[Rfam]
RNA sequence: AUAGUGAAUCCAUAAAGCUCAGGAGGGAUAGCGCCAUGGAUAAACGAUCAUAUUUGGCGAUCGGAAGGUAGAUCUAUAGCGCUAUCCAUCCUGAGUUUCUUGGUUUCUUUGU
Number, nucleotide and partner (000 for none) at each position: 001a000002u000003a000004g000005u000006g000007a000008a000009u000010c103011c000012a000013u000014a000015a000016a097017g096018c095019u094020c093021a092022g091023g090024a089025g000026g087027g086028a085029u084030a083031g082032c081033g080034c079035c000036a000037u000038g000039g000040a000041u000042a000043a000044a000045c000046g000047a000048u000049c000050a000051u000052a000053u000054u000055u000056g000057g000058c000059g000060a000061u000062c000063g000064g000065a000066a000067g000068g000069u000070a000071g000072a000073u000074c000075u000076a000077u000078a000079g034080c033081g032082c031083u030084a029085u028086c027087c026088a000089u024090c023091c022092u021093g020094a019095g018096u017097u016098u000099c000100u000101u000102g000103g010104u000105u000106u000107c000108u000109u000110u000111g000112u000